[Rfam]
RNA sequence: AAAAAGGGCAUCUGUCGUGAUUGACACAGUAAAGGCAGGGCAUUUCUGCUGUUACUGCGGAAUCGCUAUCAAGAGAUUUCGGAUGCAUAAUUUUUACUAACAGGGGCUGCUGAUAACCGUGUGUUUGGGCGCCCCG
Number, nucleotide and partner (000 for none) at each position: 001a000002a000003a000004a000005a000006g000007g000008g086009c085010a084011u083012c082013u026014g025015u024016c023017g022018u000019g000020a000021u000022u017023g016024a015025c014026a013027c057028a056029g055030u054031a053032a052033a000034g050035g049036c048037a047038g046039g000040g000041c000042a000043u000044u000045u000046c038047u037048g036049c035050u034051g000052u032053u031054a030055c029056u028057g027058c081059g080060g079061a078062a077063u076064c075065g000066c000067u000068a000069u000070c000071a000072a000073g000074a000075g064076a063077u062078u061079u060080c059081g058082g012083a011084u010085g009086c008087a000088u000089a000090a000091u000092u000093u000094u000095u000096a000097c000098u000099a000100a000101c000102a000103g000104g134105g133106g132107c131108u000109g130110c129111u128112g000113a126114u000115a125116a124117c123118c000119g000120u000121g000122u000123g117124u116125u115126u113127g000128g111129g110130c109131g107132c106133c105134c104135c000136g000
RNA: U11 spliceosomal RNA